[Rfam]
RNA sequence: CGCUGAGUCCGGGCCCCCCGCAGGGGGGCCGGGAGCCGGGGAACCAACCCACCUGGGGUGAAUCCCCUCCGAGAGUGACGGUUUCGGGGCCGUGACGGAAGAGGGGUAGGGCCUGUCGUGCCCGAAUCCGUCAGCUCACCCGGUAGGCGUA
Dot-bracket structure: ((((...(((.....................)))((((((....((.......))(((.....((((((...............................))))))..((((.......))))...))).........)))))).))))..
c-di-AMP riboswitch aptamer (ydaO/yuaA leader): a 151-nucleotide RNA sequence from Nocardioides islandensis. NCBI's taxonomy places the organism under Bacteria, Bacillati, Actinomycetes, Propionibacteriales, Nocardioides. Gene Ontology terms of the family: regulation of gene expression and cyclic-di-AMP binding.